[Rfam]
Rfam assigns this 73-nucleotide RNA sequence from Lentisphaera araneosa to the family "tRNA".
RNA sequence: AGGAGAGUAGCUCAGCUGGUAGAGCAUCGGUCUCCAAAACCGAGGGUCGCAGGUUCGAACCCUGUCUCUCUUG
Numbered sequence: 001a002g003g004a005g006a007g008u009a010g011c012u013c014a015g016c017u018g019g020u021a022g023a024g025c026a027u028c029g030g031u032c033u034c035c036a037a038a039a040c041c042g043a044g045g046g047u048c049g050c051a052g053g054u055u056c057g058a059a060c061c062c063u064g065u066c067u068c069u070c071u072u073g
Stems, first nucleotide, its partner, number of pairs: 001072007010025004027043005049065005

Background:
Transfer RNA (tRNA) molecules are approximately 80 nucleotides in length. Gene Ontology term of the family: triplet codon-amino acid adaptor activity.